[Rfam]
RNA sequence: GUUUCUCAGCAGGGGUGCUCCGUAUCGCCGGGGCUGAGAUGCGGGCGUCAUGCCGGCGGACCCUUGAGCUGAUCUGGGUAAUGCCAGCGGAGCGAGGCGGACAUGUUUUCGGG
Number, nucleotide and partner (000 for none) at each position: 001g000002u000003u000004u000005c000006u101007c100008a000009g098010c097011a064012g063013g062014g061015g000016u058017g034018c033019u032020c031021c030022g000023u000024a000025u000026c000027g000028c000029c000030g021031g020032g019033g018034c017035u000036g000037a000038g000039a000040u000041g057042c056043g000044g054045g053046c052047g051048u000049c000050a000051u047052g046053c045054c044055g000056g042057c041058g016059g000060a000061c014062c013063c012064u011065u000066g000067a000068g093069c092070u091071g000072a000073u000074c087075u086076g085077g084078g000079u000080a000081a000082u000083g000084c077085c076086a075087g074088c000089g000090g000091a070092g069093c068094g000095a000096g000097g010098c009099g000100g007101a006102c000103a000104u000105g000106u000107u000108u000109u000110c000111g000112g000113g000
RNA: TPP riboswitch aptamer (THI element)
Organism: Rubrimonas cliftonensis